[Rfam]
RNA sequence: GCAAUCUCGGAAUGACCGAUGUUCAAAAAGAGCAGCGAUUGCUUCUGGGGGAUACGCGUAAUGACCAUUCUUGCUGAUUGGGACAUUACGUAGGGUAGGUAUUGGCUAGUCCUUUAGCUGAUAGACGGGAUACUUAUGGCGCAAUUCGUCAUGUUAAUGGGAAACCCAACA
Numbered sequence: 001g002c003a004a005u006c007u008c009g010g011a012a013u014g015a016c017c018g019a020u021g022u023u024c025a026a027a028a029a030g031a032g033c034a035g036c037g038a039u040u041g042c043u044u045c046u047g048g049g050g051g052a053u054a055c056g057c058g059u060a061a062u063g064a065c066c067a068u069u070c071u072u073g074c075u076g077a078u079u080g081g082g083a084c085a086u087u088a089c090g091u092a093g094g095g096u097a098g099g100u101a102u103u104g105g106c107u108a109g110u111c112c113u114u115u116a117g118c119u120g121a122u123a124g125a126c127g128g129g130a131u132a133c134u135u136a137u138g139g140c141g142c143a144a145u146u147c148g149u150c151a152u153g154u155u156a157a158u159g160g161g162a163a164a165c166c167c168a169a170c171a
Stems, first nucleotide, its partner, number of pairs: 006049006056091008065081003100123010137151005
RNA: DABA-DC-AT RNA